[Rfam]
RNA: Burkholderia RNA 7 (anti-hemB)
RNA sequence: UCCCCGCUUUUCCUCCCUGAGCGGGUGCCUUAGUGUGUGACAGCAAAAAGGCUUCCUGACCCGGCCCGAAAGGCCGGGUUUUUUUUG
Numbered sequence: 001u002c003c004c005c006g007c008u009u010u011u012c013c014u015c016c017c018u019g020a021g022c023g024g025g026u027g028c029c030u031u032a033g034u035g036u037g038u039g040a041c042a043g044c045a046a047a048a049a050g051g052c053u054u055c056c057u058g059a060c061c062c063g064g065c066c067c068g069a070a071a072g073g074c075c076g077g078g079u080u081u082u083u084u085u086u087g
Base pairs, nucleotide, nucleotide: 003025004024005023006022007021008020027052028051029050030049031048059079060078061077062076063075064074065073066072